[Rfam]
RNA sequence: CUUCGCGUCGGGUUUGCGCAUUUUCAGCGCGUUACCGACCGCGUGCAUCAGGUGGGUUUUACCGAGACCGACACCGCCGUA
Numbered sequence: 001c002u003u004c005g006c007g008u009c010g011g012g013u014u015u016g017c018g019c020a021u022u023u024u025c026a027g028c029g030c031g032u033u034a035c036c037g038a039c040c041g042c043g044u045g046c047a048u049c050a051g052g053u054g055g056g057u058u059u060u061a062c063c064g065a066g067a068c069c070g071a072c073a074c075c076g077c078c079g080u081a
Base pairs, nucleotide, nucleotide: 004043005042006041007040011036012035013034016032017031018030051078052077053076054075056074057073063070

The record is an 81-nucleotide RNA from Mangrovimicrobium sediminis, which matches "antisense RNA of dnaA mRNA" in Rfam. Lineage of the source: Bacteria > Pseudomonadota > Gammaproteobacteria > Halieaceae > Mangrovimicrobium. The match comes from Rfam's covariance-model search (53 bits).